[Rfam]
RNA sequence: CGUUUUAGGUAAUCGCUGCAUUACUUUGAUAAUGUAGAGGAAAGUCCAUGCUCGCACAAGCUGAGAUGCUUGUAGUGUUCGUGCCUAGCCAAUUCAUAAGCUAGGGUAGCCUUAUAAGGGCUAACGGCGGGGAAAUAACCUAAGUCAUUCGAUAUGGUUGGAGUACUCUGAAAGUGCCACAGUGACGUAGUCUCCCUAGAAAUAGGGAGAGUGGAACGCGGUAAACCCCUCGAGCGAGAAACCCAAAUAAUGGUAGGGGCAUCUUCCUAAAGGAAUCAAACGGAGGGAAGGACGAAAGCUACAUGCUUUCGUAGAUAAAUGAUUACCACCUGAGUACGAGGCUAUAUAGCCGUUUGCAGUACAACGGAACAGAACAUGGCUUACGAAA
Numbered sequence: 001c002g003u004u005u006u007a008g009g010u011a012a013u014c015g016c017u018g019c020a021u022u023a024c025u026u027u028g029a030u031a032a033u034g035u036a037g038a039g040g041a042a043a044g045u046c047c048a049u050g051c052u053c054g055c056a057c058a059a060g061c062u063g064a065g066a067u068g069c070u071u072g073u074a075g076u077g078u079u080c081g082u083g084c085c086u087a088g089c090c091a092a093u094u095c096a097u098a099a100g101c102u103a104g105g106g107u108a109g110c111c112u113u114a115u116a117a118g119g120g121c122u123a124a125c126g127g128c129g130g131g132g133a134a135a136u137a138a139c140c141u142a143a144g145u146c147a148u149u150c151g152a153u154a155u156g157g158u159u160g161g162a163g164u165a166c167u168c169u170g171a172a173a174g175u176g177c178c179a180c181a182g183u184g185a186c187g188u189a190g191u192c193u194c195c196c197u198a199g200a201a202a203u204a205g206g207g208a209g210a211g212u213g214g215a216a217c218g219c220g221g222u223a224a225a226c227c228c229c230u231c232g233a234g235c236g237a238g239a240a241a242c243c244c245a246a247a248u249a250a251u252g253g254u255a256g257g258g259g260c261a262u263c264u265u266c267c268u269a270a271a272g273g274a275a276u277c278a279a280a281c282g283g284a285g286g287g288a289a290g291g292a293c294g295a296a297a298g299c300u301a302c303a304u305g306c307u308u309u310c311g312u313a314g315a316u317a318a319a320u321g322a323u324u325a326c327c328a329c330c331u332g333a334g335u336a337c338g339a340g341g342c343u344a345u346a347u348a349g350c351c352g353u354u355u356g357c358a359g360u361a362c363a364a365c366g367g368a369a370c371a372g373a374a375c376a377u378g379g380c381u382u383a384c385g386a387a388a
Stems, first nucleotide, its partner, number of pairs: 004388003008327007016037006042382003046379005051238005056073006079233003083229001084105006106125001107123006126228002129168003137159004144153003174226002176222003191210008242258003262291007292312008329367002334362004
A member of the RNA family "Bacterial RNase P class B" from Priestia filamentosa, 388 nucleotides long. Its family is annotated with dimeric ribonuclease P complex, tRNA processing and ribonuclease P activity in the Gene Ontology. Its Rfam clan is "RNaseP clan". By type it is a ribozyme. The match comes from Rfam's covariance-model search (332 bits).